A member of the RNA family "Plastid-psbN 5UTR RNA" from Populus tomentosa, 55 nucleotides long. The literature on the family includes a 2023 paper in Plant Commun by Richter et al., "Retrograde signaling in plants: A critical review focusing on the GUN pathway and beyond". The base pairs follow the family's consensus structure, which was predicted with LocARNA. Plastid psbN is a non-coding RNA (ncRNA) recognised in plastids. By type it is a cis-regulatory element.
RNA sequence: UGUGACACCCAUCAAAGGAAUAGUUCCCCACCCUAGAGCUAAUUUACCAUAUUUC
Numbered sequence: 001u002g003u004g005a006c007a008c009c010c011a012u013c014a015a016a017g018g019a020a021u022a023g024u025u026c027c028c029c030a031c032c033c034u035a036g037a038g039c040u041a042a043u044u045u046a047c048c049a050u051a052u053u054u055c
Stems, first nucleotide, its partner, number of pairs: 017045003021041006

The organism belongs to Populus, within Eukaryota.